[Rfam]
RNA sequence: CCCGUGCCUGCCGGGCCGCAUGAGCGGAUAUUGCAGGACAAGGAUUAUUCGGGCCGUGCCUUGCAUUCCAAAACCCCGAAACGC
Numbered sequence: 001c002c003c004g005u006g007c008c009u010g011c012c013g014g015g016c017c018g019c020a021u022g023a024g025c026g027g028a029u030a031u032u033g034c035a036g037g038a039c040a041a042g043g044a045u046u047a048u049u050c051g052g053g054c055c056g057u058g059c060c061u062u063g064c065a066u067u068c069c070a071a072a073a074c075c076c077c078g079a080a081a082c083g084c
Stems, first nucleotide, its partner, number of pairs: 001015004007037005017026003039063005048080005